RNA sequence: AAGGGUUUGAGGUCAUAGCAGAAAGAAGCACUAACAGCAUGAUCAUGUCAGAUUCCAGAGAAUCUGCAAAUUCUGCU
Numbered sequence: 001a002a003g004g005g006u007u008u009g010a011g012g013u014c015a016u017a018g019c020a021g022a023a024a025g026a027a028g029c030a031c032u033a034a035c036a037g038c039a040u041g042a043u044c045a046u047g048u049c050a051g052a053u054u055c056c057a058g059a060g061a062a063u064c065u066g067c068a069a070a071u072u073c074u075g076c077u
Stems, first nucleotide, its partner, number of pairs: 011044004017077007024040001049066007
RNA: Mammalian CPEB3 ribozyme
Organism: Alligator mississippiensis